[Rfam]
RNA: Plastid-psbN 5UTR RNA
RNA sequence: AGCAUCAUAAAGGAGUAGUUCCCCACCCGGGAGCUACUUCUCCAUAUUCCUAUUUA
Numbered sequence: 001a002g003c004a005u006c007a008u009a010a011a012g013g014a015g016u017a018g019u020u021c022c023c024c025a026c027c028c029g030g031g032a033g034c035u036a037c038u039u040c041u042c043c044a045u046a047u048u049c050c051u052a053u054u055u056a
Stems, first nucleotide, its partner, number of pairs: 012040011
Dot-bracket structure: ...........(((((((((((.......)))))))))))................